[Rfam]
RNA: Small nucleolar RNA SNORA58
RNA sequence: GUGCAUAUCAGUAGACCUCACCUUGCUAUGUCCUGGCAUGGUGAGGGGGAUAGCAUGUGCCAGAGGUGAUGUGGAGUGACUGUCAGAUGCAGCCAGCAGAGUAGAUGGUUGGCUUAACUGGUACUCCCACAUUC
Numbered sequence: 001g002u003g004c005a006u007a008u009c010a011g012u013a014g015a016c017c018u019c020a021c022c023u024u025g026c027u028a029u030g031u032c033c034u035g036g037c038a039u040g041g042u043g044a045g046g047g048g049g050a051u052a053g054c055a056u057g058u059g060c061c062a063g064a065g066g067u068g069a070u071g072u073g074g075a076g077u078g079a080c081u082g083u084c085a086g087a088u089g090c091a092g093c094c095a096g097c098a099g100a101g102u103a104g105a106u107g108g109u110u111g112g113c114u115u116a117a118c119u120g121g122u123a124c125u126c127c128c129a130c131a132u133u134c
Base pairs, nucleotide, nucleotide: 003060004059005058006057007056008055016046017045018044019043020042021041022040024038073127074126075125076124081120093112094111095110096109097108